[Rfam]
RNA: Wolbachia sRNA 46
RNA sequence: UAAGAUAUUUUCACAGAGUAAGUCAUGCCACUAGUUGUAGGCUCUAGAAUAAUUAAAAAUUGUUAUAAACUUUCUAAAGUUAUGAAUUUCCCCAAUAAUUGUUAUUCUAGAGCCUACAACUAGUGGCAUGACUUACUCUGUGAAAAUA
Number, nucleotide and partner (000 for none) at each position: 001u000002a000003a000004g000005a000006u000007a000008u000009u000010u000011u143012c142013a141014c140015a139016g000017a000018g000019u000020a000021a000022g000023u000024c130025a129026u128027g127028c126029c125030a124031c123032u122033a121034g120035u119036u118037g117038u116039a115040g114041g113042c112043u111044c110045u109046a108047g107048a106049a105050u104051a103052a102053u101054u000055a000056a000057a000058a000059a000060u000061u000062g000063u000064u000065a000066u000067a000068a000069a000070c000071u000072u000073u000074c000075u000076a000077a000078a000079g000080u000081u000082a000083u000084g000085a000086a000087u000088u000089u000090c000091c000092c000093c000094a000095a000096u000097a000098a000099u000100u000101g053102u052103u051104a050105u049106u048107c047108u046109a045110g044111a043112g042113c041114c040115u039116a038117c037118a036119a035120c034121u033122a032123g031124u030125g029126g028127c027128a026129u025130g024131a000132c000133u000134u000135a000136c000137u000138c000139u015140g014141u013142g012143a011144a000145a000146a000147u000148a000